About this RNA
The family of this 231-nucleotide RNA sequence from Priestia filamentosa is "T-box leader". It scores 113 bits against the family's covariance model. Taxonomically the source falls in Priestia (Bacteria, Bacillati, Bacillota, Bacillaceae). The family's RNA type in Rfam is cis-regulatory leader. Uncharged tRNA acts as the effector for transcription antitermination of genes in the T-box leader family.

Nucleotides: 231
Base pairs, nucleotide, nucleotide: 007106008105015101016100017099018098030087032085033084041078042077043076053075054074055073056072057071058070109141110140111139112138113137114136115135143154144153145152171193172192173191174190175189176188177187200228201227202226203225211224212223213222214221
Number, partner (000 for none) and nucleotide at each position: 001000u002000a003000a004000a005000a006000g007106g008105c009000g010000u011000u012000g013000a014000a015101a016100a017099g018098g019000a020000c021000a022000u023000g024000a025000a026000u027000g028000a029000u030087u031000a032085u033084c034000a035000u036000u037000u038000u039000u040000u041078c042077u043076u044000u045000a046000c047000a048000g049000a050000g051000a052000a053075a054074a055073g056072a057071g058070c059000a060000u061000c062000u063000g064000c065000u066000g067000a068000g069000a070058g071057c072056u073055c074054u075053u076043a077042a078041g079000a080000a081000a082000a083000a084033g085032a086000a087030a088000u089000c090000g091000u092000u093000u094000a095000c096000c097000a098018c099017c100016u101015u102000u103000g104000a105008g106007c107000u108000u109141u110140u111139g112138c113137a114136g115135g116000g117000a118000a119000a120000u121000a122000a123000a124000u125000a126000a127000u128000u129000a130000g131000a132000g133000u134000a135115u136114c137113u138112g139111c140110a141109a142000a143154c144153g145152g146000a147000a148000u149000a150000a151000a152145c153144c154143g155000u156000u157000a158000u159000c160000a161000a162000a163000u164000c165000u166000u167000u168000g169000a170000g171193c172192a173191u174190a175189g176188a177187g178000c179000c180000g181000u182000u183000u184000a185000c186000g187177c188176u189175u190174u191173a192172u193171g194000g195000a196000a197000c198000u199000u200228a201227g202226g203225g204000u205000g206000g207000a208000a209000c210000c211224a212223c213222g214221a215000c216000c217000g218000c219000a220000c221214u222213c223212g224211u225203c226202c227201c228200u229000u230000a231000u